[Rfam]
RNA: Antizyme RNA frameshifting stimulation element
RNA sequence: UGAUGUCCCUCAGCCACUGUCAAAGAUCCCUGGUGGGCAAGGGGUUGGCAGGGAUC
Number, nucleotide and partner (000 for none) at each position: 001u000002g000003a000004u000005g000006u044007c043008c042009c041010u040011c000012a000013g000014c036015c035016a034017c033018u032019g000020u000021c000022a000023a000024a000025g056026a055027u054028c053029c052030c051031u000032g018033g017034u016035g015036g014037g000038c000039a000040a010041g009042g008043g007044g006045u000046u000047g000048g000049c000050a000051g030052g029053g028054a027055u026056c025